RNA sequence: UCCCUCCAUUCUUGCCACUUUCCGUUCCUUUUAUAUGGAAAGUGUAUGCUUAAUGGAGGCAAAUCGCUGUCGAGAACCUUCGGUGUCCUGCCUUAAAUUCAAAGGCUGGGAUUCCAUCCUCUGUCUCGAAAACAUCG
Numbered sequence: 001u002c003c004c005u006c007c008a009u010u011c012u013u014g015c016c017a018c019u020u021u022c023c024g025u026u027c028c029u030u031u032u033a034u035a036u037g038g039a040a041a042g043u044g045u046a047u048g049c050u051u052a053a054u055g056g057a058g059g060c061a062a063a064u065c066g067c068u069g070u071c072g073a074g075a076a077c078c079u080u081c082g083g084u085g086u087c088c089u090g091c092c093u094u095a096a097a098u099u100c101a102a103a104g105g106c107u108g109g110g111a112u113u114c115c116a117u118c119c120u121c122u123g124u125c126u127c128g129a130a131a132a133c134a135u136c137g
Base pairs, nucleotide, nucleotide: 003059004058005057006056007055008054009053010052016044017043018042021039022038023037024036068131070129071128072127073126074125075124082115083114086111087110088109090106091105092104

Description: The family of this 137-nucleotide sequence from Globodera rostochiensis is "Nematode snoRNA ceN88". Pairs were carried over by alignment from the consensus structure, which was predicted with RNAalifold. Gene Ontology terms of the family: RNA processing and nucleolus. The match comes from Rfam's covariance-model search (41 bits). The family has 6 seed sequences and 99 matches in Rfam 15.1. The family's RNA type in Rfam is H/ACA-box small nucleolar RNA.